[Rfam]
RNA sequence: UUCUUAUCAAGAGAAGCUGAGGGAACUGGCCCUAUGACGCUUCAGCAACCACUAAUUAUUUUAGAAAGGUGCUACUUCCAGCAAGAUUUUUUCUUGAGAGAUAAGAG
Numbered sequence: 001u002u003c004u005u006a007u008c009a010a011g012a013g014a015a016g017c018u019g020a021g022g023g024a025a026c027u028g029g030c031c032c033u034a035u036g037a038c039g040c041u042u043c044a045g046c047a048a049c050c051a052c053u054a055a056u057u058a059u060u061u062u063a064g065a066a067a068g069g070u071g072c073u074a075c076u077u078c079c080a081g082c083a084a085g086a087u088u089u090u091u092u093c094u095u096g097a098g099a100g101a102u103a104a105g106a107g
Stems, first nucleotide, its partner, number of pairs: 001107008013043005021032003026081004044073004049069002052064003077099001082096005

Shown here is a 107-nucleotide sequence from Oceanobacillus profundus, a member of the family "SAM riboswitch aptamer (S box leader)".
The source organism's lineage runs through Bacteria, Bacillota, Caryophanales, Bacillaceae and Oceanobacillus.
Pairs were carried over by alignment from the consensus structure, which is taken from published work.